[Rfam]
RNA sequence: GCGCGUUCUCAGGGCGGGGCGGAAUUCCCCACCGGCGGUAUGCGGCAUGAUCCGCGAGCCCGCGAGCGGCCCGAGCCACACAAGGCUUCGGGUGUCAGCAGAUCAGGUGAAAUGCCUGAGCCGACGGUCAUAGUCCGGAUGGAAGAGAACGUGC
Numbered sequence: 001g002c003g004c005g006u007u008c009u010c011a012g013g014g015c016g017g018g019g020c021g022g023a024a025u026u027c028c029c030c031a032c033c034g035g036c037g038g039u040a041u042g043c044g045g046c047a048u049g050a051u052c053c054g055c056g057a058g059c060c061c062g063c064g065a066g067c068g069g070c071c072c073g074a075g076c077c078a079c080a081c082a083a084g085g086c087u088u089c090g091g092g093u094g095u096c097a098g099c100a101g102a103u104c105a106g107g108u109g110a111a112a113u114g115c116c117u118g119a120g121c122c123g124a125c126g127g128u129c130a131u132a133g134u135c136c137g138g139a140u141g142g143a144a145g146a147g148a149a150c151g152u153g154c
Stems, first nucleotide, its partner, number of pairs: 003152008017029003031134002033123002035063004058121002066099002103119005125137003
RNA: FMN riboswitch aptamer (RFN element)
Organism: Pseudaestuariivita atlantica